The record is a 107-nucleotide sequence from Amphibacillus marinus, which matches "TPP riboswitch aptamer (THI element)" in Rfam. Rfam links the family to the GO term thiamine pyrophosphate binding. A search with the family's covariance model found it, with a score of 76 bits. The family's consensus secondary structure is taken from published work.
[Rfam]
RNA sequence: AACAUGCACUAGGGGUGCCUACCAAACGGCUGAGAGGAACUAUCGUGUUCUAACCCUUUGAACCUGAUCUAGAUAAUACUAGCGUGGGGAAGUGUAGUCGAACCGGU
Numbered sequence: 001a002a003c004a005u006g007c008a009c010u011a012g013g014g015g016u017g018c019c020u021a022c023c024a025a026a027c028g029g030c031u032g033a034g035a036g037g038a039a040c041u042a043u044c045g046u047g048u049u050c051u052a053a054c055c056c057u058u059u060g061a062a063c064c065u066g067a068u069c070u071a072g073a074u075a076a077u078a079c080u081a082g083c084g085u086g087g088g089g090a091a092g093u094g095u096a097g098u099c100g101a102a103c104c105g106g107u
Base pairs, nucleotide, nucleotide: 006095007094008093009092010091011057012056013055014054017030018029019028037050038049039048040047063088064087065086066085069082070081071080072079